[Rfam]
RNA sequence: GUUCAAAAUGCAGUGAUGUCUUUUCUAAGCAUGUAUCUGAUUGUUCUGUGUGGAAAAUGAGUGUUGCUGUGUAAUUUUUGGAU
Number, nucleotide and partner (000 for none) at each position: 001g083002u082003u081004c080005a079006a078007a000008a076009u073010g072011c071012a000013g000014u000015g000016a000017u000018g000019u000020c000021u000022u000023u000024u000025c000026u000027a000028a000029g000030c000031a000032u000033g000034u000035a000036u000037c000038u000039g000040a000041u000042u000043g000044u000045u000046c000047u000048g000049u000050g000051u000052g000053g000054a000055a000056a000057a000058u000059g000060a000061g000062u000063g000064u000065u000066g000067c000068u000069g000070u000071g011072u010073a009074a000075u000076u008077u000078u006079u005080g004081g003082a002083u001

Shown here is an 83-nucleotide sequence from Acanthisitta chloris, a member of the family "Small nucleolar RNA SNORD121A". The family's RNA type in Rfam is C/D-box small nucleolar RNA. Rfam 15.1 lists 881 matches to the family in 444 species. The literature on the family includes a 2006 paper in Nucleic Acids Res by Yang et al., "snoSeeker: an advanced computational package for screening of guide and orphan snoRNA genes in the human genome". The organism belongs to Acanthisitta, within Eukaryota. A search with the family's covariance model found it, with a score of 46 bits.